[Rfam]
RNA: TPP riboswitch aptamer (THI element)
RNA sequence: CAUUAAUAGUCGGGGUGCUGCCUUGUGUAGCUGAGAUAAUACCCGUUGAACCUGAUCCAGUUAGCACUGACGUAGGAAACUUAUUAUGAAAACGC
Numbered sequence: 001c002a003u004u005a006a007u008a009g010u011c012g013g014g015g016u017g018c019u020g021c022c023u024u025g026u027g028u029a030g031c032u033g034a035g036a037u038a039a040u041a042c043c044c045g046u047u048g049a050a051c052c053u054g055a056u057c058c059a060g061u062u063a064g065c066a067c068u069g070a071c072g073u074a075g076g077a078a079a080c081u082u083a084u085u086a087u088g089a090a091a092a093c094g095c
Stems, first nucleotide, its partner, number of pairs: 008081003011045004016039001017031005051076004058069003